[Rfam]
RNA sequence: AUAAAUUUCAUAUGUUUGCUUCGUAUAAUGCCGGGGAUAUGGCCCGGAAGUCUCUACCAGGCUGCCGUAAAUAGCUUGACUACGAGGUAAUAUAGAUUGGUU
Numbered sequence: 001a002u003a004a005a006u007u008u009c010a011u012a013u014g015u016u017u018g019c020u021u022c023g024u025a026u027a028a029u030g031c032c033g034g035g036g037a038u039a040u041g042g043c044c045c046g047g048a049a050g051u052c053u054c055u056a057c058c059a060g061g062c063u064g065c066c067g068u069a070a071a072u073a074g075c076u077u078g079a080c081u082a083c084g085a086g087g088u089a090a091u092a093u094a095g096a097u098u099g100g101u102u
Stems, first nucleotide, its partner, number of pairs: 018088008029049001031047005058078007